Rfam assigns this 100-nucleotide RNA from Ricinus communis to the family "Small nucleolar RNA Z103". Rfam classes the family as a C/D-box small nucleolar RNA. Its family is annotated with nucleolus and RNA processing in the Gene Ontology. The base pairs follow the family's consensus structure, which was predicted with PFOLD.
RNA sequence: UGUGAGGUGAUGAUUACUUCCCCAAAUGAUCGAAGCUGAAUAUACUGAGCGAUUUUUCGCUCAAUAUAUUUUGGGAGUCCAAGCCAGAUUUCUGAUCCCA
Numbered sequence: 001u002g003u004g005a006g007g008u009g010a011u012g013a014u015u016a017c018u019u020c021c022c023c024a025a026a027u028g029a030u031c032g033a034a035g036c037u038g039a040a041u042a043u044a045c046u047g048a049g050c051g052a053u054u055u056u057u058c059g060c061u062c063a064a065u066a067u068a069u070u071u072u073g074g075g076a077g078u079c080c081a082a083g084c085c086a087g088a089u090u091u092c093u094g095a096u097c098c099c100a
Stems, first nucleotide, its partner, number of pairs: 001100002004097002

For this family Rfam cites "The high diversity of snoRNAs in plants: identification and comparative study of 120 snoRNA genes from Oryza sativa" (Chen et al., Nucleic Acids Res, 2003). The organism belongs to Ricinus, within Eukaryota.